[Rfam]
RNA sequence: GCACUGGUGACCCGGGCUGGUGCUCGGCCGGGACUUCAAAUCCCGGGGCGUCGGGAGGCGCAGGCGUUCGAUUCGCCCUCCGGUGC
Numbered sequence: 001g002c003a004c005u006g007g008u009g010a011c012c013c014g015g016g017c018u019g020g021u022g023c024u025c026g027g028c029c030g031g032g033a034c035u036u037c038a039a040a041u042c043c044c045g046g047g048g049c050g051u052c053g054g055g056a057g058g059c060g061c062a063g064g065c066g067u068u069c070g071a072u073u074c075g076c077c078c079u080c081c082g083g084u085g086c
Stems, first nucleotide, its partner, number of pairs: 001086007009078001012027006028046006048061005063077004
Rfam assigns this 86-nucleotide sequence from Perkinsus chesapeaki to the family "Selenocysteine transfer RNA". The source organism's lineage runs through Eukaryota, Sar, Perkinsea, Perkinsida and Perkinsus. The family's consensus secondary structure is taken from published work.